[Rfam]
RNA sequence: CCUGCACGGAGCGUGAUCGCUCCGCUCAGGCUGGAAUGUGGUCGGGCGACCGACUGAACCACUCG
Numbered sequence: 001c002c003u004g005c006a007c008g009g010a011g012c013g014u015g016a017u018c019g020c021u022c023c024g025c026u027c028a029g030g031c032u033g034g035a036a037u038g039u040g041g042u043c044g045g046g047c048g049a050c051c052g053a054c055u056g057a058a059c060c061a062c063u064c065g
Base pairs, nucleotide, nucleotide: 001030002029003028004027032061033060034059040055041054042053043052044051
eL15-Euryarchaeota ribosomal protein leader: a 65-nucleotide RNA sequence from Halapricum salinum. The family's consensus secondary structure is taken from published work. Lineage of the source: Archaea > Methanobacteriati > Methanobacteriota > Haloarculaceae > Halapricum. The literature on the family includes a 2020 paper in BMC Microbiol by Eckert and Weinberg, "Discovery of 20 novel ribosomal leader candidates in bacteria and archaea".